[Rfam]
RNA sequence: UGACCAUCCGCGGCGCGCGGAUCGAGGCUACACGGACGGCCGGGUCAAAUGCCGA
Numbered sequence: 001u002g003a004c005c006a007u008c009c010g011c012g013g014c015g016c017g018c019g020g021a022u023c024g025a026g027g028c029u030a031c032a033c034g035g036a037c038g039g040c041c042g043g044g045u046c047a048a049a050u051g052c053c054g055a
Stems, first nucleotide, its partner, number of pairs: 001047005006022006
Shown here is a 55-nucleotide RNA sequence, a member of the family "Streptococcus sRNA SpF59 (ldcC RNA)". For this family Rfam cites "Control of virulence by small RNAs in Streptococcus pneumoniae" (Mann et al., PLoS Pathog, 2012). Rfam classes the family as a small RNA.